The family of this 108-nucleotide sequence from Pontibacillus chungwhensis is "SAM riboswitch aptamer (S box leader)". Lineage of the source: Bacteria > Bacillota > Bacilli > Caryophanales > Pontibacillus chungwhensis. The match comes from Rfam's covariance-model search (82 bits).
[Rfam]
RNA sequence: UUCUUAUUCAGAGAAGCCGAGGGAUCUGGUCCGUUGACGCUUCAGCAACCUAUCUUGAAUGAUGUGGUGCUCCUUCCAGCAAGUGAUGAAUCACUUGAAAGAUAAGAA
Numbered sequence: 001u002u003c004u005u006a007u008u009c010a011g012a013g014a015a016g017c018c019g020a021g022g023g024a025u026c027u028g029g030u031c032c033g034u035u036g037a038c039g040c041u042u043c044a045g046c047a048a049c050c051u052a053u054c055u056u057g058a059a060u061g062a063u064g065u066g067g068u069g070c071u072c073c074u075u076c077c078a079g080c081a082a083g084u085g086a087u088g089a090a091u092c093a094c095u096u097g098a099a100a101g102a103u104a105a106g107a108a
Base pairs, nucleotide, nucleotide: 001108002107003106004105005104006103007102008101013043014042015041016040017039021032022031023030026079027078028077029076044071045070046069047068049067050066051064052063053062054061075100080097081096082095083094084093085092